[Rfam]
This 163-nucleotide RNA sequence from Glycine max belongs to the Rfam family "MIR4371 microRNA precursor family". The base pairs follow the family's consensus structure, which was predicted with RNAalifold. A search with the family's covariance model found it, with a score of 115 bits. Its family is annotated with RISC complex and miRNA-mediated post-transcriptional gene silencing in the Gene Ontology. Its Rfam clan is "MIR4387 microRNA precursor clan". Taxonomically the source falls in Glycine subgen. Soja (Eukaryota, Euphyllophyta, Fabaceae, Phaseoleae).
RNA sequence: UCAUUAAGCGAUGAUGUGGCAGACUGAGUGUCGCGUCAUCAUGCAUUGUCACUGACAUGCCAUUGUGACAUCAUUGAAGGGGAAUGACUUGACAAUGAGGUGCAUGUUCAUGACUAGGUGUGAUGAUGUGAUACUCUGUUUGUCACAUCAUCACUUAAAGAAA
Numbered sequence: 001u002c003a004u005u006a007a008g009c010g011a012u013g014a015u016g017u018g019g020c021a022g023a024c025u026g027a028g029u030g031u032c033g034c035g036u037c038a039u040c041a042u043g044c045a046u047u048g049u050c051a052c053u054g055a056c057a058u059g060c061c062a063u064u065g066u067g068a069c070a071u072c073a074u075u076g077a078a079g080g081g082g083a084a085u086g087a088c089u090u091g092a093c094a095a096u097g098a099g100g101u102g103c104a105u106g107u108u109c110a111u112g113a114c115u116a117g118g119u120g121u122g123a124u125g126a127u128g129u130g131a132u133a134c135u136c137u138g139u140u141u142g143u144c145a146c147a148u149c150a151u152c153a154c155u156u157a158a159a160g161a162a163a
Base pairs, nucleotide, nucleotide: 001161002160004158005157006156007155008154010152011151012150013149014148015147016146017145018144019143020142021141022140023139024138026136027135028134029133030132031131032130033129034128035127036126037125038124039123040122041121042120043119044118046116048114049113050112051111054108055107056106057105058104071087072086073085074084